[Rfam]
RNA sequence: GUUUUCAUCACGUCGAUUGGUGUCAGAGCCAUGCUAAUUAAUUCUCUCUCAAGAGGAAUUUUUUGCAUGGCUCUGAUACCAAUUGAUGCAAUGGAAAC
Numbered sequence: 001g002u003u004u005u006c007a008u009c010a011c012g013u014c015g016a017u018u019g020g021u022g023u024c025a026g027a028g029c030c031a032u033g034c035u036a037a038u039u040a041a042u043u044c045u046c047u048c049u050c051a052a053g054a055g056g057a058a059u060u061u062u063u064u065g066c067a068u069g070g071c072u073c074u075g076a077u078a079c080c081a082a083u084u085g086a087u088g089c090a091a092u093g094g095a096a097a098c
Base pairs, nucleotide, nucleotide: 001098002097003096004095005094006093007092008091011088012087013086014085015084016083017082018081019080020079021078022077023076024075025074026073027072028071029070030069031068032067033066034065
RNA: MIR845_1 microRNA precursor family
Organism: Raphanus sativus